[Rfam]
RNA sequence: AUCGCCUGGGGAUCUUGUUAAGACGCAGGUUUUCAUUCAGUAGAUCUGAGGCCUGAGGUUCUGCAUUCUAGCAAGCUCCCAGGGGAUGCCAA
Numbered sequence: 001a002u003c004g005c006c007u008g009g010g011g012a013u014c015u016u017g018u019u020a021a022g023a024c025g026c027a028g029g030u031u032u033u034c035a036u037u038c039a040g041u042a043g044a045u046c047u048g049a050g051g052c053c054u055g056a057g058g059u060u061c062u063g064c065a066u067u068c069u070a071g072c073a074a075g076c077u078c079c080c081a082g083g084g085g086a087u088g089c090c091a092a
Base pairs, nucleotide, nucleotide: 003085005083009079010078011077014075015074016073017072018071019070020069021067023066025064026063027062028061029060031058032057033056034055035054
The family of this 92-nucleotide RNA from Panthera leo is "mir-544 microRNA precursor family". The match comes from Rfam's covariance-model search (67 bits).